RNA: t44 RNA
RNA sequence: AAUAACUUAAACCUAAACCACACAUAUACCGACACAUAAUACGGGGUGCCUAACCUAAAAGUUAAAGGGUGGGUCGUGUUAUGGGGUGUAUGGAGGCUUAAC
Numbered sequence: 001a002a003u004a005a006c007u008u009a010a011a012c013c014u015a016a017a018c019c020a021c022a023c024a025u026a027u028a029c030c031g032a033c034a035c036a037u038a039a040u041a042c043g044g045g046g047u048g049c050c051u052a053a054c055c056u057a058a059a060a061g062u063u064a065a066a067g068g069g070u071g072g073g074u075c076g077u078g079u080u081a082u083g084g085g086g087u088g089u090a091u092g093g094a095g096g097c098u099u100a101a102c
Stems, first nucleotide, its partner, number of pairs: 023092008035083009048074005